[Rfam]
RNA sequence: CCUGUCAUCUUACCGGGCAGCAUUAGAGUAUACUGUCGUCUAAUACUGUCAGGUAACGAUGUCAGG
Numbered sequence: 001c002c003u004g005u006c007a008u009c010u011u012a013c014c015g016g017g018c019a020g021c022a023u024u025a026g027a028g029u030a031u032a033c034u035g036u037c038g039u040c041u042a043a044u045a046c047u048g049u050c051a052g053g054u055a056a057c058g059a060u061g062u063c064a065g066g
Base pairs, nucleotide, nucleotide: 002065003064004063006061007060008059009058010056011055012054013053014052016050017049018048019047020046022044023043024042025041026040027039